[Rfam]
RNA sequence: UGCACCCUAUUCCCUAUAUAGUGCACUACUGUAUAGCCCUGGUCAAAAGUAGUGCACUACAUAGGGAAUAGGGUGGCA
Number, nucleotide and partner (000 for none) at each position: 001u078002g077003c076004a000005c073006c072007c071008u000009a069010u068011u067012c066013c065014c064015u063016a062017u000018a000019u059020a058021g057022u056023g055024c054025a053026c052027u051028a000029c000030u000031g000032u000033a000034u000035a000036g000037c000038c000039c000040u000041g000042g000043u000044c000045a000046a000047a000048a000049g000050u000051a027052g026053u025054g024055c023056a022057c021058u020059a019060c000061a000062u016063a015064g014065g013066g012067a011068a010069u009070a000071g007072g006073g005074u000075g000076g003077c002078a001
RNA: mir-130 microRNA precursor family
Organism: Salvelinus namaycush